[Rfam]
RNA sequence: AGGUGUGUGAGGAGUAAGUUGAAGCCCCCGGAGUCGAAACAAGGAAAGACGCCCAGGGGCUUUUUCUU
Dot-bracket structure: ....................((((...((((.(((............)))..))...))...))))..